[Rfam]
Nucleotides: 094
Base pairs, nucleotide, nucleotide: 003091004090005089006088007087008086010084011083012082013081014080015079016078017077018076019075020074021073022072023071024070025069027067029065030064032060033059034058036056043049044048
Number, partner (000 for none) and nucleotide at each position: 001000u002000u003091g004090u005089a006088a007087c008086a009000c010084g011083g012082g013081c014080c015079g016078g017077u018076g019075c020074u021073a022072a023071a024070g025069g026000u027067u028000c029065c030064u031000u032060c033059c034058u035000a036056a037000c038000g039000g040000c041000u042000a043049c044048u045000g046000a047000c048044a049043g050000g051000u052000g053000c054000u055000a056036u057000c058034g059033g060032g061000a062000c063000a064030g065029g066000g067027a068000c069025c070024c071023u072022u073021u074020a075019g076018c077017a078016c079015c080014g081013g082012u083011u084010c085000u086008u087007g088006u089005u090004a091003c092000c093000a094000a
Annotation
A member of the RNA family "MIR5387 microRNA precursor family" from Sorghum bicolor, 94 nucleotides long. The organism belongs to Sorghum, within Eukaryota.